[Rfam]
RNA: MIR5272 microRNA precursor family
Organism: Medicago truncatula
RNA sequence: UUAGAUGUGAAUUGAUUUAUGUUUGGAUACACUCGUUUAAAAGUGAUUUUUAUGAAUUAAUUUUAUUUAUAUAU
Number, nucleotide and partner (000 for none) at each position: 001u000002u000003a000004g000005a000006u000007g000008u000009g000010a000011a061012u060013u059014g058015a057016u056017u055018u054019a000020u000021g053022u052023u000024u000025g049026g048027a047028u046029a000030c045031a044032c043033u042034c000035g000036u000037u000038u000039a000040a000041a000042a033043g032044u031045g030046a028047u027048u026049u025050u000051u000052a022053u021054g018055a017056a016057u015058u014059a013060a012061u011062u000063u000064u000065a000066u000067u000068u000069a000070u000071a000072u000073a000074u000